[Rfam]
Source information: U5 spliceosomal RNA: a 115-nucleotide sequence from Fusarium graminearum.
RNA sequence: UCGGAGUGGGACCUCCCAUCGAACUCACCUCUUGCCUUUUACCAGAUGUGACCGUGGGAUUGGCCCAACAGACUCCAUUCAUCUAAUCUUUGGAAACCAUUCAUCUAGAAUCUCU
Numbered sequence: 001u002c003g004g005a006g007u008g009g010g011a012c013c014u015c016c017c018a019u020c021g022a023a024c025u026c027a028c029c030u031c032u033u034g035c036c037u038u039u040u041a042c043c044a045g046a047u048g049u050g051a052c053c054g055u056g057g058g059a060u061u062g063g064c065c066c067a068a069c070a071g072a073c074u075c076c077a078u079u080c081a082u083c084u085a086a087u088c089u090u091u092g093g094a095a096a097c098c099a100u101u102c103a104u105c106u107a108g109a110a111u112c113u114c115u
Base pairs, nucleotide, nucleotide: 003076004075005074006073009066010065012063013062014059015058016057017056018055025051026050027049028048030046031045032044094115099111100110101109
The base pairs follow the family's consensus structure, which is taken from published work.
From the family's description: U5 RNA is a component of both types of known spliceosome. The precise function of this molecule is unknown, though it is known that the 5' loop is required for splice site selection and p220 binding, and that both the 3' stem-loop and the Sm site are important for Sm protein binding and cap methylation.